[Rfam]
RNA sequence: GGACCACAUUGGAGUUGUGUCCUGGCCCCAUCCGUGGCCUCGCUUGCACACUCACGUGGCCCAAGA
Numbered sequence: 001g002g003a004c005c006a007c008a009u010u011g012g013a014g015u016u017g018u019g020u021c022c023u024g025g026c027c028c029c030a031u032c033c034g035u036g037g038c039c040u041c042g043c044u045u046g047c048a049c050a051c052u053c054a055c056g057u058g059g060c061c062c063a064a065g066a
Base pairs, nucleotide, nucleotide: 001062002061004059005058006057007056017049018048019047020046024039025038026037027036

Record summary:
Rfam assigns this 66-nucleotide sequence from Strigomonas culicis to the family "Trypanosomatid snoRNA TB9Cs2H1". The family's consensus secondary structure was predicted with WAR. Rfam classes the family as an H/ACA-box small nucleolar RNA.